Lysine riboswitch aptamer: a 171-nucleotide sequence from Romboutsia sp. CE17.
A search with the family's covariance model found it, with a score of 121 bits.
The base pairs follow the family's consensus structure, which is taken from published work.
The source organism's lineage runs through Bacteria, Bacillota, Clostridia, Peptostreptococcaceae and Romboutsia.
RNA sequence: ACCUAGGGUAGAGGUGCUGUAAUUAAGAGUAGUUCAUAGGAAUCGGCAGGUUAUGAUUAUGAAUGAAAGGAAGUACAGCCGAAGAAAACUUAUUGGCAAAUAAUUUUUCUGGGAUUAUGUAAAAUAUACAUGAUACUGUCACUUAGUAUUAAGUGGUGAGCUACAAGGUUA
Numbered sequence: 001a002c003c004u005a006g007g008g009u010a011g012a013g014g015u016g017c018u019g020u021a022a023u024u025a026a027g028a029g030u031a032g033u034u035c036a037u038a039g040g041a042a043u044c045g046g047c048a049g050g051u052u053a054u055g056a057u058u059a060u061g062a063a064u065g066a067a068a069g070g071a072a073g074u075a076c077a078g079c080c081g082a083a084g085a086a087a088a089c090u091u092a093u094u095g096g097c098a099a100a101u102a103a104u105u106u107u108u109c110u111g112g113g114a115u116u117a118u119g120u121a122a123a124a125u126a127u128a129c130a131u132g133a134u135a136c137u138g139u140c141a142c143u144u145a146g147u148a149u150u151a152a153g154u155g156g157u158g159a160g161c162u163a164c165a166a167g168g169u170u171a
Stems, first nucleotide, its partner, number of pairs: 008164004016079006023072002032064008083110006090103005111137002114134008139156007